[Rfam]
RNA sequence: AGGUCACAAUUAACAUUCAUUGCUGUCGGUGUGUUGUGUAUUUCAAAGAAACUCACUGAACAAUGAGUGCAACUGUGGCUGG
Number, nucleotide and partner (000 for none) at each position: 001a000002g000003g080004u078005c077006a076007c075008a074009a000010u000011u000012a000013a000014c069015a068016u067017u066018c065019a064020u063021u062022g061023c000024u000025g000026u059027c058028g057029g056030u055031g054032u000033g052034u051035u050036g000037u000038g000039u000040a000041u000042u000043u000044c000045a000046a000047a000048g000049a000050a035051a034052c033053u000054c031055a030056c029057u028058g027059a026060a000061c022062a021063a020064u019065g018066a017067g016068u015069g014070c000071a000072a000073c000074u008075g007076u006077g005078g004079c000080u003081g000082g000

mir-181 microRNA precursor family: an 82-nucleotide RNA sequence from Geotrypetes seraphini.
Its family is annotated with RISC complex and miRNA-mediated post-transcriptional gene silencing in the Gene Ontology.
Lineage of the source: Eukaryota > Gnathostomata > Dipnotetrapodomorpha > Amphibia > Geotrypetes.
The literature on the family includes a 2001 paper in Cell by Ambros, "microRNAs: tiny regulators with great potential".